[Rfam]
RNA sequence: CGCCUAAACCCCGACGUGUCGGGGCAUGGUGUAUAAGACUCAUCGAAGAAACUGAACCCUGCGUUCAGCGUCUCUUCGAUGAGCCAUAUUCCGAAAGGAGUAUGGGGCUUUCAAAAGCCC
Numbered sequence: 001c002g003c004c005u006a007a008a009c010c011c012c013g014a015c016g017u018g019u020c021g022g023g024g025c026a027u028g029g030u031g032u033a034u035a036a037g038a039c040u041c042a043u044c045g046a047a048g049a050a051a052c053u054g055a056a057c058c059c060u061g062c063g064u065u066c067a068g069c070g071u072c073u074c075u076u077c078g079a080u081g082a083g084c085c086a087u088a089u090u091c092c093g094a095a096a097g098g099a100g101u102a103u104g105g106g107g108c109u110u111u112c113a114a115a116a117g118c119c120c
Stems, first nucleotide, its partner, number of pairs: 001031004009024006039083011052068006085104008105120006
RNA: LOOT RNA